Source information:
Fluoride riboswitch aptamer (crcB RNA motif): a 71-nucleotide RNA sequence from Ruminococcus sp. CAG:353. A search with the family's covariance model found it, with a score of 41 bits. The family's consensus secondary structure is taken from published work. Taxonomically the source falls in Ruminococcus (Bacteria, Bacillota, Clostridia, Oscillospiraceae). Its family is annotated with response to fluoride and positive regulation of gene expression in the Gene Ontology. The family has 289 seed sequences and 2,293 matches in Rfam 15.1.
[Rfam]
RNA sequence: CUUAACAAAGGGAAUGAAGUGCGCCCUUGGGAAACCAAAACCGCUUAUUAGCUGAUGACUUCUGCGAUAUU
Numbered sequence: 001c002u003u004a005a006c007a008a009a010g011g012g013a014a015u016g017a018a019g020u021g022c023g024c025c026c027u028u029g030g031g032a033a034a035c036c037a038a039a040a041c042c043g044c045u046u047a048u049u050a051g052c053u054g055a056u057g058a059c060u061u062c063u064g065c066g067a068u069a070u071u
Stems, first nucleotide, its partner, number of pairs: 010026003016062005043052003